ffh sRNA: a 54-nucleotide RNA sequence. The family's consensus secondary structure is taken from published work. The literature on the family includes a 2009 paper in BMC Genomics by Meyer et al., "Identification of candidate structured RNAs in the marine organism 'Candidatus Pelagibacter ubique'". By type it is a small RNA.
Nucleotides: 054
Stems, first nucleotide, its partner, number of pairs: 016046007026037004
Number, partner (000 for none) and nucleotide at each position: 001000g002000a003000a004000u005000u006000c007000c008000a009000g010000g011000a012000u013000c014000g015000c016046c017045c018044c019043c020042c021041g022040u023000c024000c025000a026037g027036c028035g029034a030000g031000g032000u033000u034029u035028c036027g037026c038000u039000c040022a041021c042020g043019g044018g045017g046016g047000u048000a049000u050000u051000g052000g053000u054000g